[Rfam]
RNA sequence: UUAGUUUUGGAGUGCGUGUCAGUUGUGCGUUUACAUGAAAUUUCCAUUGACUUCGGAGAGCGCAUGAAAGCUGUAAAUGCACUAUCUGGUACGCACCAGAGAAA
Numbered sequence: 001u002u003a004g005u006u007u008u009g010g011a012g013u014g015c016g017u018g019u020c021a022g023u024u025g026u027g028c029g030u031u032u033a034c035a036u037g038a039a040a041u042u043u044c045c046a047u048u049g050a051c052u053u054c055g056g057a058g059a060g061c062g063c064a065u066g067a068a069a070g071c072u073g074u075a076a077a078u079g080c081a082c083u084a085u086c087u088g089g090u091a092c093g094c095a096c097c098a099g100a101g102a103a104a
Base pairs, nucleotide, nucleotide: 008098009097010096015093016092017091018090019089020088021087022086025082027080028079029078030077031076032075033074034073035072
RNA: mir-277 microRNA precursor family
Organism: Clunio marinus